The family of this 158-nucleotide sequence from Glycine soja is "MIR4371 microRNA precursor family". Taxonomically the source falls in Glycine subgen. Soja (Eukaryota, Magnoliopsida, Fabaceae, Glycine). The match comes from Rfam's covariance-model search (130 bits). Rfam links the family to the GO terms miRNA-mediated post-transcriptional gene silencing and RISC complex. Its Rfam clan is "MIR4387 microRNA precursor clan".
RNA sequence: UCGUUAAGUGAUGAUGUGACAGACGGAGUGUCACGUCAUUACGCCUAAUCACUGACACCUUAUUAUCAUUUCAAUGAAGGAAAUGACAUGACAACAAGGUGUCAAUGAUAAGGCGUGAUCACAUGAUACUCCAUUUGUCAUGACAUCACUUAAUGGAA
Numbered sequence: 001u002c003g004u005u006a007a008g009u010g011a012u013g014a015u016g017u018g019a020c021a022g023a024c025g026g027a028g029u030g031u032c033a034c035g036u037c038a039u040u041a042c043g044c045c046u047a048a049u050c051a052c053u054g055a056c057a058c059c060u061u062a063u064u065a066u067c068a069u070u071u072c073a074a075u076g077a078a079g080g081a082a083a084u085g086a087c088a089u090g091a092c093a094a095c096a097a098g099g100u101g102u103c104a105a106u107g108a109u110a111a112g113g114c115g116u117g118a119u120c121a122c123a124u125g126a127u128a129c130u131c132c133a134u135u136u137g138u139c140a141u142g143a144c145a146u147c148a149c150u151u152a153a154u155g156g157a158a
Base pairs, nucleotide, nucleotide: 001156002155003154004153005152006151007150008149009148010147011146012145013144015142016141017140018139019138020137021136022135023134025132026131027130028129029128030127031126032125033124035122036121038119039118040117041116042115043114044113045112046111048109049108050107051106054103055102056101057100058099071086072085073084